The record is a 56-nucleotide RNA from Eutrema salsugineum, which matches "Plastid-ccsA-ndhD-1 3UTR RNA" in Rfam. Rfam's curators write: Plastid-ccsA-ndhD-1 is a non-coding RNA (ncRNA) recognised in plastids. It was found in the three prime untranslated region (3UTR) of ccsA and ndhD genes, its 3UTR location suggests a role in transcript maturation. For this family Rfam cites "Surprising features of plastid ndhD transcripts: addition of non-encoded nucleotides and polysome association of mRNAs with an unedited start codon" (Zandueta-Criado and Bock, Nucleic Acids Res, 2004).
RNA sequence: AAAUCAUCAAGGACCUUUUGAAUCAUUGUACUACUUGAUUCAAAAGGUUCUCACAA
Numbered sequence: 001a002a003a004u005c006a007u008c009a010a011g012g013a014c015c016u017u018u019u020g021a022a023u024c025a026u027u028g029u030a031c032u033a034c035u036u037g038a039u040u041c042a043a044a045a046g047g048u049u050c051u052c053a054c055a056a
Stems, first nucleotide, its partner, number of pairs: 010051016